[Rfam]
RNA sequence: GAGAGCGUAGUUUAACUGAAUAAAACAUCGGUCUACGAAACCGUAGCUUGCUUCCCGGAGGGUAGACGUGGGGGUUCGAUUCCCUCCGCUCUCG
Numbered sequence: 001g002a003g004a005g006c007g008u009a010g011u012u013u014a015a016c017u018g019a020a021u022a023a024a025a026c027a028u029c030g031g032u033c034u035a036c037g038a039a040a041c042c043g044u045a046g047c048u049u050g051c052u053u054c055c056c057g058g059a060g061g062g063u064a065g066a067c068g069u070g071g072g073g074g075u076u077c078g079a080u081u082c083c084c085u086c087c088g089c090u091c092u093c094g
Base pairs, nucleotide, nucleotide: 001093002092003091004090005089006088007087010026011025012024013023029043030042031041032040070086071085072084073083074082